Shown here is a 254-nucleotide RNA, a member of the family "ARRPOF RNA". Rfam classes the family as a small RNA.
RNA sequence: AAAAAUCUUACUAACUAUAUUAGCAACACAAUUUGUACUAUAGAUAAAAUCUUAAGUACAGUCGCUCUGCUCGAAGCGAUACAGCGGUUUAACUGGUGUUAUGAAUUGAAGCAAUGCGAGAGUCGGCAUUUUAACAGGCUUGGCGGUGUCCUGUGUGGGUGCUUUGUAAAUGGUAGAAAUAGAAAGUAAGCUAUGCCAUUAGUUGCUGGGCGGGACUAGCAACAGCAAGCGAAUUAGCUUGAUACAAAGUAAGU
Numbered sequence: 001a002a003a004a005a006u007c008u009u010a011c012u013a014a015c016u017a018u019a020u021u022a023g024c025a026a027c028a029c030a031a032u033u034u035g036u037a038c039u040a041u042a043g044a045u046a047a048a049a050u051c052u053u054a055a056g057u058a059c060a061g062u063c064g065c066u067c068u069g070c071u072c073g074a075a076g077c078g079a080u081a082c083a084g085c086g087g088u089u090u091a092a093c094u095g096g097u098g099u100u101a102u103g104a105a106u107u108g109a110a111g112c113a114a115u116g117c118g119a120g121a122g123u124c125g126g127c128a129u130u131u132u133a134a135c136a137g138g139c140u141u142g143g144c145g146g147u148g149u150c151c152u153g154u155g156u157g158g159g160u161g162c163u164u165u166g167u168a169a170a171u172g173g174u175a176g177a178a179a180u181a182g183a184a185a186g187u188a189a190g191c192u193a194u195g196c197c198a199u200u201a202g203u204u205g206c207u208g209g210g211c212g213g214g215a216c217u218a219g220c221a222a223c224a225g226c227a228a229g230c231g232a233a234u235u236a237g238c239u240u241g242a243u244a245c246a247a248a249g250u251a252a253g254u
Stems, first nucleotide, its partner, number of pairs: 007190006034060006041054002062079005081099003085095004114129004120141005148216006160251009169200005179194004202223006226241005